[Rfam]
RNA: DUF805b RNA
RNA sequence: AAGGGGAUUGCCGAAAACCCUGCAAUAGAGUAGGCG
Numbered sequence: 001a002a003g004g005g006g007a008u009u010g011c012c013g014a015a016a017a018c019c020c021u022g023c024a025a026u027a028g029a030g031u032a033g034g035c036g
Stems, first nucleotide, its partner, number of pairs: 002021004010035003